[Rfam]
RNA sequence: AAAUGAAUAAUAUUUGUGCCGUAGACAGUAGGUGCUCUCAUAUAGAGCUUAAUUUCCUGCCGAGGUAAUUCGAUAAAAAUAGCACCUGCUAUUAUUUAUGUAAUUACUGCCUUCAUGUCUCCGGGAUAUGAAGGCUUUUUGUUUGACGGU
Numbered sequence: 001a002a003a004u005g006a007a008u009a010a011u012a013u014u015u016g017u018g019c020c021g022u023a024g025a026c027a028g029u030a031g032g033u034g035c036u037c038u039c040a041u042a043u044a045g046a047g048c049u050u051a052a053u054u055u056c057c058u059g060c061c062g063a064g065g066u067a068a069u070u071c072g073a074u075a076a077a078a079a080u081a082g083c084a085c086c087u088g089c090u091a092u093u094a095u096u097u098a099u100g101u102a103a104u105u106a107c108u109g110c111c112u113u114c115a116u117g118u119c120u121c122c123g124g125g126a127u128a129u130g131a132a133g134g135c136u137u138u139u140u141g142u143u144u145g146a147c148g149g150u
Stems, first nucleotide, its partner, number of pairs: 028060005034048005109135010
This 150-nucleotide RNA sequence from Bacillus sp. V59.32b belongs to the Rfam family "Ribosomal protein L10 leader".
Rfam classes the family as a cis-regulatory leader.
The source organism's lineage runs through Bacteria, Bacillota, Caryophanales, Bacillaceae and Bacillus.